[Rfam]
RNA: SAM riboswitch aptamer (S box leader)
RNA sequence: CUCUUAUCAAGAGAGGCGGAGGGACUGGCCCUUUGAUGCCCGGCAACCGACGAACUGAUCAUUCGUUACGGUGCCAAUUCCUACAAAGUUUGAAAACAACUUUGAUAGAUGAGAG
Numbered sequence: 001c002u003c004u005u006a007u008c009a010a011g012a013g014a015g016g017c018g019g020a021g022g023g024a025c026u027g028g029c030c031c032u033u034u035g036a037u038g039c040c041c042g043g044c045a046a047c048c049g050a051c052g053a054a055c056u057g058a059u060c061a062u063u064c065g066u067u068a069c070g071g072u073g074c075c076a077a078u079u080c081c082u083a084c085a086a087a088g089u090u091u092g093a094a095a096a097c098a099a100c101u102u103u104g105a106u107a108g109a110u111g112a113g114a115g
Stems, first nucleotide, its partner, number of pairs: 001115008013041001015040003021031003027081002042075004047071002049067006079107001084104006